[Rfam]
RNA sequence: GAAGUCGUUGCUGAUCGCCGUUCGGGCAAAAGCGCCGCGGCUAAUCUGGAAUCGCUGUAAUCAGCGUUGAAUGAAUUUGUCUCCAGUCUUUGACCACGGAUGUACUGGCACUGAUUGUUGAGACAAUGGGAAGGUCGGGGUAAAGCCCGGCCUUUUUUUAU
Numbered sequence: 001g002a003a004g005u006c007g008u009u010g011c012u013g014a015u016c017g018c019c020g021u022u023c024g025g026g027c028a029a030a031a032g033c034g035c036c037g038c039g040g041c042u043a044a045u046c047u048g049g050a051a052u053c054g055c056u057g058u059a060a061u062c063a064g065c066g067u068u069g070a071a072u073g074a075a076u077u078u079g080u081c082u083c084c085a086g087u088c089u090u091u092g093a094c095c096a097c098g099g100a101u102g103u104a105c106u107g108g109c110a111c112u113g114a115u116u117g118u119u120g121a122g123a124c125a126a127u128g129g130g131a132a133g134g135u136c137g138g139g140g141u142a143a144a145g146c147c148c149g150g151c152c153u154u155u156u157u158u159u160a161u
Stems, first nucleotide, its partner, number of pairs: 003076001005074002008070002016066003020062001079124004085116004091110002094108003126159001128157011